Shown here is a 169-nucleotide sequence from Triticum aestivum, a member of the family "MIR2118 microRNA precursor family". The family's consensus secondary structure was predicted with RNAalifold.
[Rfam]
RNA sequence: AAGUGGAAGAGGAAGAAAAUGAGCAUUUAAGAGCAUUGGACAUGGGGACAUGGAGGAAGGCCUAAACUAGUGUGUCUCUCUACAACUAGGGUCCAACAUUUUUUUCAGAAUUUUCUGGAUGCCUCCCAUGCCUAUUAUUCUUAGGUGCUCAUUCCUCUCCCUUAUGAUC
Numbered sequence: 001a002a003g004u005g006g007a008a009g010a011g012g013a014a015g016a017a018a019a020u021g022a023g024c025a026u027u028u029a030a031g032a033g034c035a036u037u038g039g040a041c042a043u044g045g046g047g048a049c050a051u052g053g054a055g056g057a058a059g060g061c062c063u064a065a066a067c068u069a070g071u072g073u074g075u076c077u078c079u080c081u082a083c084a085a086c087u088a089g090g091g092u093c094c095a096a097c098a099u100u101u102u103u104u105u106c107a108g109a110a111u112u113u114u115c116u117g118g119a120u121g122c123c124u125c126c127c128a129u130g131c132c133u134a135u136u137a138u139u140c141u142u143a144g145g146u147g148c149u150c151a152u153u154c155c156u157c158u159c160c161c162u163u164a165u166g167a168u169c
Stems, first nucleotide, its partner, number of pairs: 009160001011158003015154003021150003026145008035136001037134003041130007049121003055116006
Dot-bracket structure: ........(.(((.(((...(((..((((((((.(.(((.(((((((.(((...((((((..................................................))))))..)))..))))))).))).).))))))))..))).))).))).).........